Record summary
A member of the RNA family "Small nucleolar RNA Me28S-Gm3113" from Drosophila ananassae, 85 nucleotides long. For this family Rfam cites "Genome-wide analyses of two families of snoRNA genes from Drosophila melanogaster, demonstrating the extensive utilization of introns for coding of snoRNAs" (Huang et al., RNA, 2005). Pairs were carried over by alignment from the consensus structure, which was predicted with ILM.
RNA sequence: AUUUUUAAAAUGAUGAUUUACGAUUUUACCUUGGGACACCUAUGAAAGAUCUUGAUUAGUGUAAAGUUAUGUUUUUCUGAUAAAA
Numbered sequence: 001a002u003u004u005u006u007a008a009a010a011u012g013a014u015g016a017u018u019u020a021c022g023a024u025u026u027u028a029c030c031u032u033g034g035g036a037c038a039c040c041u042a043u044g045a046a047a048g049a050u051c052u053u054g055a056u057u058a059g060u061g062u063a064a065a066g067u068u069a070u071g072u073u074u075u076u077c078u079g080a081u082a083a084a085a
Stems, first nucleotide, its partner, number of pairs: 002085004